Xanthine riboswitch aptamer (NMT1 RNA): a 60-nucleotide sequence from Acidovorax sp. MR-S7.
RNA sequence: CCGGCGAGUAGAAGCGUUCAGCACGGCGGGACCCGCCGUCGCCCGGAAAUUGCUCAGUUC
Numbered sequence: 001c002c003g004g005c006g007a008g009u010a011g012a013a014g015c016g017u018u019c020a021g022c023a024c025g026g027c028g029g030g031a032c033c034c035g036c037c038g039u040c041g042c043c044c045g046g047a048a049a050u051u052g053c054u055c056a057g058u059u060c
Stems, first nucleotide, its partner, number of pairs: 006055005015045001018047002021042002024038006